[Rfam]
RNA sequence: AAAAACAGUAGGCCGAAGCUUCGCAGAAGCGCGGGGGAACCCUAUCGUUACCGGGGUGAAGCCACGAUUAUGUGGCCGGGUGUUUACUCUUUGACCCGAAUCCGUCAGCUAACCUCGCAGGCCGGGAAAAGGAGAACA
Dot-bracket structure: ..........((((...(((.......)))((((((....(...........)(((.....((((......))))..((((............))))...))).........)))))).))))...............
Numbered sequence: 001a002a003a004a005a006c007a008g009u010a011g012g013c014c015g016a017a018g019c020u021u022c023g024c025a026g027a028a029g030c031g032c033g034g035g036g037g038a039a040c041c042c043u044a045u046c047g048u049u050a051c052c053g054g055g056g057u058g059a060a061g062c063c064a065c066g067a068u069u070a071u072g073u074g075g076c077c078g079g080g081u082g083u084u085u086a087c088u089c090u091u092u093g094a095c096c097c098g099a100a101u102c103c104g105u106c107a108g109c110u111a112a113c114c115u116c117g118c119a120g121g122c123c124g125g126g127a128a129a130a131g132g133a134g135a136a137c138a
Stems, first nucleotide, its partner, number of pairs: 011123004018030003031118006041053001054103003062075004078097004
c-di-AMP riboswitch aptamer (ydaO/yuaA leader): a 138-nucleotide sequence from Paenibacillus contaminans. The source organism's lineage runs through Bacteria, Bacillota, Bacilli, Paenibacillaceae and Paenibacillus.